[Rfam]
MIR162_1 microRNA precursor family: an 81-nucleotide sequence from Solanum tuberosum.

RNA sequence: GGAGGCAGCGGUUCAUCGAUCUGUUCCCUGAAAAGCGAUAAAUAUAGCAACAGGAAGCGAUCGAUAAACCUCUGCAUCCAG
Numbered sequence: 001g002g003a004g005g006c007a008g009c010g011g012u013u014c015a016u017c018g019a020u021c022u023g024u025u026c027c028c029u030g031a032a033a034a035g036c037g038a039u040a041a042a043u044a045u046a047g048c049a050a051c052a053g054g055a056a057g058c059g060a061u062c063g064a065u066a067a068a069c070c071u072c073u074g075c076a077u078c079c080a081g
Stems, first nucleotide, its partner, number of pairs: 001079003006074003010070004015065007024056003
The source organism's lineage runs through Eukaryota, Gunneridae, Pentapetalae, Solanaceae and Solanum. Pairs were carried over by alignment from the consensus structure, which was predicted with RNAalifold. A reference for the family is Reinhart et al. (2002), "MicroRNAs in plants", Genes Dev.